[Rfam]
RNA sequence: GUAAAUAUAUUAAACACCACCUGUAUAUGCUAGUAAUAUGGUCUAGCGUUUCUACGUCUUACCACUGGAAUAAGGACUCUAUAGGUUAAUGCUUUUCUUUU
Numbered sequence: 001g002u003a004a005a006u007a008u009a010u011u012a013a014a015c016a017c018c019a020c021c022u023g024u025a026u027a028u029g030c031u032a033g034u035a036a037u038a039u040g041g042u043c044u045a046g047c048g049u050u051u052c053u054a055c056g057u058c059u060u061a062c063c064a065c066u067g068g069a070a071u072a073a074g075g076a077c078u079c080u081a082u083a084g085g086u087u088a089a090u091g092c093u094u095u096u097c098u099u100u101u
Base pairs, nucleotide, nucleotide: 019086020085021084022083023082024081025080029047030046031045032044033043056077057076058075059073060072061071
RNA: Purine riboswitch aptamer
Organism: Spiroplasma sp. NBRC 100390